[Rfam]
RNA sequence: UCGACGAAACAGGGGUGCUUCGCACACUGCCGGCGUGAUUCCGAUCCGCGGCGGCGAGGCUGAGAGAGACCCUUUGCACCCGAUCCGGGUAAUACCGGCGCGGGAAGUUUCCGGAAGCAACCG
Numbered sequence: 001u002c003g004a005c006g007a008a009a010c011a012g013g014g015g016u017g018c019u020u021c022g023c024a025c026a027c028u029g030c031c032g033g034c035g036u037g038a039u040u041c042c043g044a045u046c047c048g049c050g051g052c053g054g055c056g057a058g059g060c061u062g063a064g065a066g067a068g069a070c071c072c073u074u075u076g077c078a079c080c081c082g083a084u085c086c087g088g089g090u091a092a093u094a095c096c097g098g099c100g101c102g103g104g105a106a107g108u109u110u111c112c113g114g115a116a117g118c119a120a121c122c123g
Base pairs, nucleotide, nucleotide: 006111007110008109009108010107011073012072013071014070016067017060018059019058020057021056022055023054079104080103081102082101085098086097087096088095
Rfam assigns this 123-nucleotide RNA sequence from Burkholderia sp. SRS-W-2-2016 to the family "TPP riboswitch aptamer (THI element)". The organism belongs to Burkholderia, within Bacteria. Rfam links the family to the GO term thiamine pyrophosphate binding. A search with the family's covariance model found it, with a score of 66 bits. For this family Rfam cites "Comparative genomics of thiamin biosynthesis in procaryotes. New genes and regulatory mechanisms" (Rodionov et al., J Biol Chem, 2002).